This 175-nucleotide RNA from Lipomyces starkeyi belongs to the Rfam family "Small nucleolar RNA snR80". Pairs were carried over by alignment from the consensus structure, which was predicted with WAR. The family is grouped with related families in Rfam's "SNORA28 clan". Rfam classes the family as an H/ACA-box small nucleolar RNA. The source organism's lineage runs through Eukaryota, Opisthokonta, Fungi, Lipomycetes and Lipomyces starkeyi. The match comes from Rfam's covariance-model search (54 bits). A reference for the family is Schattner et al. (2004), "Genome-wide searching for pseudouridylation guide snoRNAs: analysis of the Saccharomyces cerevisiae genome", Nucleic Acids Res.
[Rfam]
RNA sequence: UUAUGUUUGCCAACACUCUGGUGCACGAUUGAAAUGGCAGUUUGUUCGUUUUCAUAUGUAUCGUGCACCUAUUUUGGUGCAAACUAGAAAGAUUAGUAGAUUGUGCUUCUUACUCACCGCGUUAUCCUUCUGUCGCUUGACGUGGAUAUCAGAGGUCCAUCUUUGGAGCGUAUAU
Number, nucleotide and partner (000 for none) at each position: 001u000002u000003a000004u000005g000006u000007u082008u081009g080010c000011c000012a000013a000014c000015a000016c000017u000018c000019u000020g069021g068022u067023g066024c065025a000026c063027g062028a061029u060030u000031g000032a000033a000034a055035u054036g053037g052038c000039a000040g000041u000042u000043u000044g000045u000046u000047c000048g000049u000050u000051u000052u037053c036054a035055u034056a000057u000058g000059u000060a029061u028062c027063g026064u000065g024066c023067a022068c021069c020070u000071a000072u000073u000074u000075u000076g000077g000078u000079g000080c009081a008082a007083a000084c000085u000086a000087g000088a000089a000090a000091g000092a000093u000094u000095a000096g000097u000098a000099g000100a000101u000102u000103g000104u170105g169106c168107u167108u000109c000110u000111u000112a000113c000114u000115c000116a000117c155118c154119g000120c152121g000122u000123u148124a147125u146126c145127c144128u000129u000130c000131u000132g000133u000134c000135g000136c000137u000138u000139g000140a000141c000142g000143u000144g127145g126146a125147u124148a123149u000150c000151a000152g120153a000154g118155g117156u000157c000158c000159a000160u000161c000162u000163u000164u000165g000166g000167a107168g106169c105170g104171u000172a000173u000174a000175u000